[Rfam]
RNA sequence: CGGGGACAUAGCAGCCUCCCCAUCAGACGCCUCAGCGUCCAAGGCCUGC
Numbered sequence: 001c002g003g004g005g006a007c008a009u010a011g012c013a014g015c016c017u018c019c020c021c022a023u024c025a026g027a028c029g030c031c032u033c034a035g036c037g038u039c040c041a042a043g044g045c046c047u048g049c
Stems, first nucleotide, its partner, number of pairs: 002021005011049004026039005
RNA: chrB-b RNA